[Rfam]
RNA sequence: AUUGCUGUGAUGAGGCUAAACACCGUGAGGGUGUACUGGGUAGUGGACGUGGCCACGUGGCCUCGCCGUGAUCCCUUUUUUAAACGACUUCUCCUUCCACUGAGCAUU
Numbered sequence: 001a002u003u004g005c006u007g008u009g010a011u012g013a014g015g016c017u018a019a020a021c022a023c024c025g026u027g028a029g030g031g032u033g034u035a036c037u038g039g040g041u042a043g044u045g046g047a048c049g050u051g052g053c054c055a056c057g058u059g060g061c062c063u064c065g066c067c068g069u070g071a072u073c074c075c076u077u078u079u080u081u082a083a084a085c086g087a088c089u090u091c092u093c094c095u096u097c098c099a100c101u102g103a104g105c106a107u108u
Base pairs, nucleotide, nucleotide: 001108003106004105005104

A member of the RNA family "Small nucleolar RNA Z152/R70/R12/" from Apium graveolens, 108 nucleotides long. Rfam 15.1 lists 604 matches to the family in 220 species. The family's RNA type in Rfam is C/D-box small nucleolar RNA. The family's consensus secondary structure was predicted with PFOLD. Its family is annotated with nucleolus and RNA processing in the Gene Ontology. The literature on the family includes a 2001 paper in J Mol Biol by Barneche et al., "Identification of 66 box C/D snoRNAs in Arabidopsis thaliana: extensive gene duplications generated multiple isoforms predicting new ribosomal RNA 2'-O-methylation sites". Taxonomically the source falls in Apium (Eukaryota, Gunneridae, Apiales, Apiineae).